[Rfam]
RNA sequence: GUGGUGAAAAGCGGGCAUAAGGAGUAACGCACGGGCACUUCGUUGUCCAUCAAUAUUUCUCCUGGGAAGGUCUGAGAUAAGGUCCUAGCCCGUUCUGGGUGGCUAUAUCCUCUAGCAGGGGAAUAACGUAACUCGUUAUGGUGCCGUACUAGAAACGUCCCUCGUUACCAGUCAUCCUGAAGUACAAGAGAGUUUAUCUACCUCCCCCUAACACCACCAAAGGGGGAGGGGGUAAACUUGAUACGAUCGUGGUGAUGGUGACGGGUUUGAACCACGGCACUGGUACCAGCUAUGCUGAGUGCGAUUGUCCAUACACGCACGUACGUGAAACUCAAUUCAGACUACUCUCUCACCAC
Numbered sequence: 001g002u003g004g005u006g007a008a009a010a011g012c013g014g015g016c017a018u019a020a021g022g023a024g025u026a027a028c029g030c031a032c033g034g035g036c037a038c039u040u041c042g043u044u045g046u047c048c049a050u051c052a053a054u055a056u057u058u059c060u061c062c063u064g065g066g067a068a069g070g071u072c073u074g075a076g077a078u079a080a081g082g083u084c085c086u087a088g089c090c091c092g093u094u095c096u097g098g099g100u101g102g103c104u105a106u107a108u109c110c111u112c113u114a115g116c117a118g119g120g121g122a123a124u125a126a127c128g129u130a131a132c133u134c135g136u137u138a139u140g141g142u143g144c145c146g147u148a149c150u151a152g153a154a155a156c157g158u159c160c161c162u163c164g165u166u167a168c169c170a171g172u173c174a175u176c177c178u179g180a181a182g183u184a185c186a187a188g189a190g191a192g193u194u195u196a197u198c199u200a201c202c203u204c205c206c207c208c209u210a211a212c213a214c215c216a217c218c219a220a221a222g223g224g225g226g227a228g229g230g231g232g233u234a235a236a237c238u239u240g241a242u243a244c245g246a247u248c249g250u251g252g253u254g255a256u257g258g259u260g261a262c263g264g265g266u267u268u269g270a271a272c273c274a275c276g277g278c279a280c281u282g283g284u285a286c287c288a289g290c291u292a293u294g295c296u297g298a299g300u301g302c303g304a305u306u307g308u309c310c311a312u313a314c315a316c317g318c319a320c321g322u323a324c325g326u327g328a329a330a331c332u333c334a335a336u337u338c339a340g341a342c343u344a345c346u347c348u349c350u351c352a353c354c355a356c
Stems, first nucleotide, its partner, number of pairs: 001356004007350001009348001014310002020063005033048005072340005098287004108122005123139006141280007159265003314327004
Nuclear RNase P: a 356-nucleotide sequence from Setaria digitata. Rfam describes the family as follows. Ribonuclease P (RNase P) is a ubiquitous endoribonuclease, found in archaea, bacteria and eukarya as well as chloroplasts and mitochondria. Clan: RNaseP clan. The organism belongs to Setaria, within Eukaryota. A reference for the family is Frank and Pace (1998), "Ribonuclease P: unity and diversity in a tRNA processing ribozyme", Annu Rev Biochem.